[Rfam]
RNA: Small nucleolar RNA snR191
RNA sequence: UACCAAACCUUUUUGUCAGGGUGCUUCUCUGUCCUUUCUAGGACAACUUUAUCCACAGAAGUGUCUGUUACUGUUUUGGUAGAGUAAUACUGUUCGCUUAUCCUUAUUUCCUCGUUCUGAGGAAGCCUGAUGGAUAACUGAGAAGGAUAACCUUUGUUUUAAAGGUAUACCUCCUCUUUUUAGAACAGUGAGGAUCUUAUGAGUUGAGCUUUUGUUACCUUUUUCUUGGGUAUCCGUACAAUAUGUUCGUAGUAAAGAUCCUCACAACU
Numbered sequence: 001u002a003c004c005a006a007a008c009c010u011u012u013u014u015g016u017c018a019g020g021g022u023g024c025u026u027c028u029c030u031g032u033c034c035u036u037u038c039u040a041g042g043a044c045a046a047c048u049u050u051a052u053c054c055a056c057a058g059a060a061g062u063g064u065c066u067g068u069u070a071c072u073g074u075u076u077u078g079g080u081a082g083a084g085u086a087a088u089a090c091u092g093u094u095c096g097c098u099u100a101u102c103c104u105u106a107u108u109u110c111c112u113c114g115u116u117c118u119g120a121g122g123a124a125g126c127c128u129g130a131u132g133g134a135u136a137a138c139u140g141a142g143a144a145g146g147a148u149a150a151c152c153u154u155u156g157u158u159u160u161a162a163a164g165g166u167a168u169a170c171c172u173c174c175u176c177u178u179u180u181u182a183g184a185a186c187a188g189u190g191a192g193g194a195u196c197u198u199a200u201g202a203g204u205u206g207a208g209c210u211u212u213u214g215u216u217a218c219c220u221u222u223u224u225c226u227u228g229g230g231u232a233u234c235c236g237u238a239c240a241a242u243a244u245g246u247u248c249g250u251a252g253u254a255a256a257g258a259u260c261c262u263c264a265c266a267a268c269u
Stems, first nucleotide, its partner, number of pairs: 003079005019066010030045005090188006098137006105130001107125007142174001144172003150166007190263004195258004205249005212241004219230002